RNA sequence: CCAGUCCCCCGAAGACUACAAAUAUACCAAACCCCUAAAGGAAGCCACAAGCGUGAGCUAGAGUACUAUGGACUAUACAACGGUCAACCCUAUAAUAGGGUCAGGAGAAGGAAAAGGGUUAUCUACGAAUAAGUAUUAGAAAUAAGUAGAGUAGUCUUCUU
Number, nucleotide and partner (000 for none) at each position: 001c000002c000003a000004g000005u000006c000007c000008c000009c000010c000011g159012a158013a157014g156015a155016c154017u153018a152019c000020a000021a000022a000023u000024a000025u000026a119027c118028c117029a000030a000031a000032c000033c000034c000035c000036u000037a000038a000039a067040g066041g000042a000043a000044g058045c057046c055047a054048c053049a000050a000051g000052c000053g048054u047055g046056a000057g045058c044059u000060a000061g000062a000063g000064u000065a000066c040067u039068a000069u000070g000071g085072a084073c083074u082075a000076u000077a000078c000079a000080a000081c000082g074083g073084u072085c071086a000087a101088c100089c099090c098091u097092a000093u000094a000095a000096u000097a091098g090099g089100g088101u087102c000103a000104g000105g000106a000107g000108a000109a000110g000111g000112a000113a000114a000115a000116g000117g028118g027119u026120u000121a000122u150123c149124u148125a147126c146127g000128a000129a000130u000131a000132a000133g000134u000135a000136u000137u000138a000139g000140a000141a000142a000143u000144a000145a000146g126147u125148a124149g123150a122151g000152u018153a017154g016155u015156c014157u013158u012159c011160u000161u000
RNA: RAGATH-9 RNA